[Rfam]
RNA sequence: UCUCAUUUAAACGAUGUAUUCCCUAACCUCUAAUACAUCCUUGUAACUCCAAGGUUACGCCAGUGUUGAUUAAAUUUCAUCAAACAAA
Numbered sequence: 001u002c003u004c005a006u007u008u009a010a011a012c013g014a015u016g017u018a019u020u021c022c023c024u025a026a027c028c029u030c031u032a033a034u035a036c037a038u039c040c041u042u043g044u045a046a047c048u049c050c051a052a053g054g055u056u057a058c059g060c061c062a063g064u065g066u067u068g069a070u071u072a073a074a075u076u077u078c079a080u081c082a083a084a085c086a087a088a
Base pairs, nucleotide, nucleotide: 036068037067040063041062042059043058044057045056046055047054048053
RNA: BsrC
Organism: Enterococcus thailandicus